This 98-nucleotide RNA sequence from Clostridium saccharoperbutylacetonicum belongs to the Rfam family "Purine riboswitch aptamer".
[Rfam]
RNA sequence: AACAUAAAAUAUUUAAAAGCUUAUAUAUACCUUGAAUAUGGCAAGGAGUAUCUACCGGAAACCGCAAAUUUCUGACUAUAAGUGAUAUUGGUAUAGGA
Numbered sequence: 001a002a003c004a005u006a007a008a009a010u011a012u013u014u015a016a017a018a019g020c021u022u023a024u025a026u027a028u029a030c031c032u033u034g035a036a037u038a039u040g041g042c043a044a045g046g047a048g049u050a051u052c053u054a055c056c057g058g059a060a061a062c063c064g065c066a067a068a069u070u071u072c073u074g075a076c077u078a079u080a081a082g083u084g085a086u087a088u089u090g091g092u093a094u095a096g097g098a
Stems, first nucleotide, its partner, number of pairs: 019083007030046005056074006